[Rfam]
RNA sequence: AUAUAAGAGAAAACUUACUUUUUAGAUACACUGAAUAAUUAAUGUAUCUGACCUAUAAUAUAGGCUAAAUACAUUAGUUACUCAGUGCAUCUAAAAGGUAGAUUUUCUCUUGUAU
Number, nucleotide and partner (000 for none) at each position: 001a000002u114003a113004u112005a111006a110007g109008a000009g107010a106011a105012a104013a103014c000015u101016u100017a099018c098019u097020u096021u095022u094023u093024a092025g091026a000027u089028a000029c087030a086031c085032u084033g083034a082035a000036u080037a079038a078039u077040u076041a075042a074043u073044g072045u000046a000047u000048c000049u067050g066051a000052c064053c000054u000055a000056u000057a000058a000059u000060a000061u000062a000063g000064g052065c000066u050067a049068a000069a000070u000071a000072c044073a043074u042075u041076a040077g039078u038079u037080a036081c000082u034083c033084a032085g031086u030087g029088c000089a027090u000091c025092u024093a023094a022095a021096a020097g019098g018099u017100a016101g015102a000103u013104u012105u011106u010107c009108u000109c007110u006111u005112g004113u003114a002115u000